Shown here is a 72-nucleotide RNA from Ostreobium quekettii, a member of the family "tRNA". Pairs were carried over by alignment from the consensus structure, which is taken from published work. Lineage of the source: Eukaryota > Viridiplantae > Bryopsidales > Ostreobineae > Ostreobium.
[Rfam]
RNA sequence: GGGAUGUUGGUCUAGUGGUAUGAUUCUCGCUUUGGGUGCGAGAGGUCCGGGGUUCGAUUCCCCGACAUCCCC
Numbered sequence: 001g002g003g004a005u006g007u008u009g010g011u012c013u014a015g016u017g018g019u020a021u022g023a024u025u026c027u028c029g030c031u032u033u034g035g036g037u038g039c040g041a042g043a044g045g046u047c048c049g050g051g052g053u054u055c056g057a058u059u060c061c062c063c064g065a066c067a068u069c070c071c072c
Stems, first nucleotide, its partner, number of pairs: 001071007010024003026042005048064005
Notes: It is annotated as a transfer RNA.